[Rfam]
Rfam assigns this 53-nucleotide sequence from Inquilinus limosus to the family "Whalefall-1 RNA". The family's RNA type in Rfam is small RNA.
RNA sequence: UCACCUCUCCUCGGGGAGAGGUCGGAACCGCGGUCGCGGUUCCGGGUGAGGGG
Numbered sequence: 001u002c003a004c005c006u007c008u009c010c011u012c013g014g015g016g017a018g019a020g021g022u023c024g025g026a027a028c029c030g031c032g033g034u035c036g037c038g039g040u041u042c043c044g045g046g047u048g049a050g051g052g053g
Stems, first nucleotide, its partner, number of pairs: 004021007024043008
Rfam 15.1 lists 134 matches to the family in 26 species. The family's consensus secondary structure is taken from published work.